[Rfam]
RNA: ssNA-helicase RNA
RNA sequence: UUGCCUAAAGCUAGUAUUACCUUUAGGCUACUUUUGUAGCGUGUAGCA
Dot-bracket structure: (.((((((((..........)))))))).)..................